Shown here is a 214-nucleotide RNA sequence, a member of the family "PAGEV RNA".
[Rfam]
RNA sequence: GCGGACUUGGAUUCAUGAUGUUGUGGGUCCGCUAGCGUUUUAUCCGGCUAUCACGGGGAUCCUCGCAAGCCGGACGGUAUAGCCAUCAACACUUAAAGUAGGCCGCAUGGGGAAGCUCACAUCGCCCCAGGUGCUCCGAAUUUUAUGUAGUGUCUGAUGCUGCACGCCGCGAGGGGGUGGGUCGUGUUGGACGGCCCAGAAGGUGCAGACGCCG
Numbered sequence: 001g002c003g004g005a006c007u008u009g010g011a012u013u014c015a016u017g018a019u020g021u022u023g024u025g026g027g028u029c030c031g032c033u034a035g036c037g038u039u040u041u042a043u044c045c046g047g048c049u050a051u052c053a054c055g056g057g058g059a060u061c062c063u064c065g066c067a068a069g070c071c072g073g074a075c076g077g078u079a080u081a082g083c084c085a086u087c088a089a090c091a092c093u094u095a096a097a098g099u100a101g102g103c104c105g106c107a108u109g110g111g112g113a114a115g116c117u118c119a120c121a122u123c124g125c126c127c128c129a130g131g132u133g134c135u136c137c138g139a140a141u142u143u144u145a146u147g148u149a150g151u152g153u154c155u156g157a158u159g160c161u162g163c164a165c166g167c168c169g170c171g172a173g174g175g176g177g178u179g180g181g182u183c184g185u186g187u188u189g190g191a192c193g194g195c196c197c198a199g200a201a202g203g204u205g206c207a208g209a210c211g212c213c214g
Stems, first nucleotide, its partner, number of pairs: 001032007043074006061174005084159005090152004160208006179197004